[Rfam]
RNA sequence: GCCGAGCCUGGUAACGCAAGCUUGUGACCCAAGUGGGGGCUUCAAGGUGAUGGGACACGGGUUCAACUCAUUGAGUUGGUUCUGUCAUGGUUUGAUUCAGGCUUGCCCGUUCCAAGCCAAGAGUUGGACCAAGGGGCACGAGCGUAGGCUUGUGCCUCGUGGUUCUUAGAGAGGGGGAUACAGCGUGAGGCUGGUUUCACAGAGCAGCAAACACCUCCCGCUCCUGGCAGUGGAAGGAUAACAGGCUUGAUCCAUUGGGAAUCACAAUGGCUCAAUGAGCUGACCCCAACUGUACCAUCAUUUUU
Numbered sequence: 001g002c003c004g005a006g007c008c009u010g011g012u013a014a015c016g017c018a019a020g021c022u023u024g025u026g027a028c029c030c031a032a033g034u035g036g037g038g039g040c041u042u043c044a045a046g047g048u049g050a051u052g053g054g055a056c057a058c059g060g061g062u063u064c065a066a067c068u069c070a071u072u073g074a075g076u077u078g079g080u081u082c083u084g085u086c087a088u089g090g091u092u093u094g095a096u097u098c099a100g101g102c103u104u105g106c107c108c109g110u111u112c113c114a115a116g117c118c119a120a121g122a123g124u125u126g127g128a129c130c131a132a133g134g135g136g137c138a139c140g141a142g143c144g145u146a147g148g149c150u151u152g153u154g155c156c157u158c159g160u161g162g163u164u165c166u167u168a169g170a171g172a173g174g175g176g177g178a179u180a181c182a183g184c185g186u187g188a189g190g191c192u193g194g195u196u197u198c199a200c201a202g203a204g205c206a207g208c209a210a211a212c213a214c215c216u217c218c219c220g221c222u223c224c225u226g227g228c229a230g231u232g233g234a235a236g237g238a239u240a241a242c243a244g245g246c247u248u249g250a251u252c253c254a255u256u257g258g259g260a261a262u263c264a265c266a267a268u269g270g271c272u273c274a275a276u277g278a279g280c281u282g283a284c285c286c287c288a289a290c291u292g293u294a295c296c297a298u299c300a301u302u303u304u305u
Stems, first nucleotide, its partner, number of pairs: 001040003004023004009018002028037003044304010055293003060287001061285001063283003068278010078263006087255004093250001098249008107237002110235005116228004121223004126165006133158011166171001173218005185208002191202003
RNA: Plant signal recognition particle RNA
Organism: Gossypium australe